[Rfam]
RNA: Small nucleolar RNA SNORA42/SNORA80 family
RNA sequence: GCAUGGGUUUGGAUUUACACCAGGCCCAUCCCCCUAGGUCUCUCCCAUGGUGCCCCAUGCCAGAGCAAACUAUGGCCUUGAACCAUUGCCUGGCCUUUGCCUAUAGGACGCAGGCAAUGAAGUGAGUUGCACAGUG
Numbered sequence: 001g002c003a004u005g006g007g008u009u010u011g012g013a014u015u016u017a018c019a020c021c022a023g024g025c026c027c028a029u030c031c032c033c034c035u036a037g038g039u040c041u042c043u044c045c046c047a048u049g050g051u052g053c054c055c056c057a058u059g060c061c062a063g064a065g066c067a068a069a070c071u072a073u074g075g076c077c078u079u080g081a082a083c084c085a086u087u088g089c090c091u092g093g094c095c096u097u098u099g100c101c102u103a104u105a106g107g108a109c110g111c112a113g114g115c116a117a118u119g120a121a122g123u124g125a126g127u128u129g130c131a132c133a134g135u136g
Stems, first nucleotide, its partner, number of pairs: 001060004005055004015050003022041003025037001073129004078124001084119002089114002091110002094107003